[Rfam]
RNA sequence: GACAGGACGACGCCGAGUCCGCGAUCUCGCCCGCCGGGCGAUCGCGGAGCGGGGGAACCAGUGGGCCCGCGUUCGCGCGUGCCCGUGGGGCGAAUCCGGCAGGGAGUGCCGGUAGCGCGGAACUCGACCGCGCGAGCCCGUCAGCUAACCCCGUAGGCCGCCAACGAGACCUU
Numbered sequence: 001g002a003c004a005g006g007a008c009g010a011c012g013c014c015g016a017g018u019c020c021g022c023g024a025u026c027u028c029g030c031c032c033g034c035c036g037g038g039c040g041a042u043c044g045c046g047g048a049g050c051g052g053g054g055g056a057a058c059c060a061g062u063g064g065g066c067c068c069g070c071g072u073u074c075g076c077g078c079g080u081g082c083c084c085g086u087g088g089g090g091c092g093a094a095u096c097c098g099g100c101a102g103g104g105a106g107u108g109c110c111g112g113u114a115g116c117g118c119g120g121a122a123c124u125c126g127a128c129c130g131c132g133c134g135a136g137c138c139c140g141u142c143a144g145c146u147a148a149c150c151c152c153g154u155a156g157g158c159c160g161c162c163a164a165c166g167a168g169a170c171c172u173u
Stems, first nucleotide, its partner, number of pairs: 012158003018048009049154006059087002088139003096112004115133004